[Rfam]
RNA sequence: UGCAGCCCCGUCAAAUUCGGUCCCUGCCCCCUCCGUGGCGGGAACUGGCCGAGCGGCUGCCACAGCGACUUCCGGGCGGCCGUCAGCCCCCCCGUCCCCAUCCCGUGGGACGCGGAGGGUGAAAUCCCGUCACGGACACCG
Numbered sequence: 001u002g003c004a005g006c007c008c009c010g011u012c013a014a015a016u017u018c019g020g021u022c023c024c025u026g027c028c029c030c031c032u033c034c035g036u037g038g039c040g041g042g043a044a045c046u047g048g049c050c051g052a053g054c055g056g057c058u059g060c061c062a063c064a065g066c067g068a069c070u071u072c073c074g075g076g077c078g079g080c081c082g083u084c085a086g087c088c089c090c091c092c093c094g095u096c097c098c099c100a101u102c103c104c105g106u107g108g109g110a111c112g113c114g115g116a117g118g119g120u121g122a123a124a125u126c127c128c129g130u131c132a133c134g135g136a137c138a139c140c141g
Base pairs, nucleotide, nucleotide: 002060003059004058005057018047019046020045021044023042024041025040026039027038028037074133075131076130077129078128087119088118089117093114094113
RNA: Small nucleolar RNA SNORA5